[Rfam]
RNA sequence: GCGGUGGUUUAGCUCAGUGGUUACUUCAAUCGAACUCCUGUUUCAUGGUCCGCGGGCCAGAAGUACGAACCACGGGCGCUGUCCAGCGCUUUU
Numbered sequence: 001g002c003g004g005u006g007g008u009u010u011a012g013c014u015c016a017g018u019g020g021u022u023a024c025u026u027c028a029a030u031c032g033a034a035c036u037c038c039u040g041u042u043u044c045a046u047g048g049u050c051c052g053c054g055g056g057c058c059a060g061a062a063g064u065a066c067g068a069a070c071c072a073c074g075g076g077c078g079c080u081g082u083c084c085a086g087c088g089c090u091u092u093u
Base pairs, nucleotide, nucleotide: 002088003087005085006084007083012077013076014075015074017073018072019071020070025069026068027067
This 93-nucleotide RNA from Salmo salar belongs to the Rfam family "Vault RNA". Lineage of the source: Eukaryota > Opisthokonta > Chordata > Euteleostomi > Salmo. The base pairs follow the family's consensus structure, which is taken from published work. On this family, see Stadler et al., Mol Biol Evol 2009: "Evolution of Vault RNAs". A search with the family's covariance model found it, with a score of 60 bits.